[Rfam]
RNA: Purine riboswitch aptamer
Organism: Oribacterium sp. KHPX15
RNA sequence: AAACCUUUAAAAUUUUAUAGUCAUAAUAUGCCCUUGGUAUGGUUGGGCGUUUCUACAAGCUGCCAUUUACAGCGUCUUAUGACUUUUUUUGUCGUAAGC
Numbered sequence: 001a002a003a004c005c006u007u008u009a010a011a012a013u014u015u016u017a018u019a020g021u022c023a024u025a026a027u028a029u030g031c032c033c034u035u036g037g038u039a040u041g042g043u044u045g046g047g048c049g050u051u052u053c054u055a056c057a058a059g060c061u062g063c064c065a066u067u068u069a070c071a072g073c074g075u076c077u078u079a080u081g082a083c084u085u086u087u088u089u090u091g092u093c094g095u096a097a098g099c
Base pairs, nucleotide, nucleotide: 019084020083021082022081023080024079025078030048031047032046033045057075059073060072061071062070
Dot-bracket structure: ..................(((((((....((((...........))))........(.((((.......)))).)..)))))))...............